[Rfam]
RNA sequence: AAAAUCCUAUCAGGUAAUACCUAGCCAGUAGCCUGUACCUAGUUCCUUGGAGCCGAAGUGGUAACACUAGGCUUAAGCGUAGGGCGGGGAGCAAACGAGCCGAAAAUGAAUGCACUGAAGCUAUUGAGCCACGAAAUAAUUAUUAAACGAAGAGGUCGAUACUAUCUUAUUGGUAGCAGACAACAUCAUAUAAAUCGGUAAGGCGAGAUUUAUAUGACUCUUCCGGGGUCUGAGGGCU
Numbered sequence: 001a002a003a004a005u006c007c008u009a010u011c012a013g014g015u016a017a018u019a020c021c022u023a024g025c026c027a028g029u030a031g032c033c034u035g036u037a038c039c040u041a042g043u044u045c046c047u048u049g050g051a052g053c054c055g056a057a058g059u060g061g062u063a064a065c066a067c068u069a070g071g072c073u074u075a076a077g078c079g080u081a082g083g084g085c086g087g088g089g090a091g092c093a094a095a096c097g098a099g100c101c102g103a104a105a106a107u108g109a110a111u112g113c114a115c116u117g118a119a120g121c122u123a124u125u126g127a128g129c130c131a132c133g134a135a136a137u138a139a140u141u142a143u144u145a146a147a148c149g150a151a152g153a154g155g156u157c158g159a160u161a162c163u164a165u166c167u168u169a170u171u172g173g174u175a176g177c178a179g180a181c182a183a184c185a186u187c188a189u190a191u192a193a194a195u196c197g198g199u200a201a202g203g204c205g206a207g208a209u210u211u212a213u214a215u216g217a218c219u220c221u222u223c224c225g226g227g228g229u230c231u232g233a234g235g236g237c238u
Base pairs, nucleotide, nucleotide: 011035012034013033014032018030019029020028022206024204025203038089039088040087044084045083046082047081048079049078050074051073052072053071054070056068058067059066060065125232126230128229129228130227132225133224149223150222151221152220153219154218155181156180157179160175161174162173163172186217187216188215189214190213191212192211193210194209195208196207
Dot-bracket structure: ..........((((...(((.[.[[..))).))))..(((...(((((((((((.(.(((....)))).)))))...)).))))..)))...................................((.(((.((...............(((((((((..((((........))))...)))....(((((((((((......]].]))))))))))))))))))).)))).)......
This 238-nucleotide sequence from Anaerobacterium chartisolvens belongs to the Rfam family "Group II catalytic intron D1-D4-6".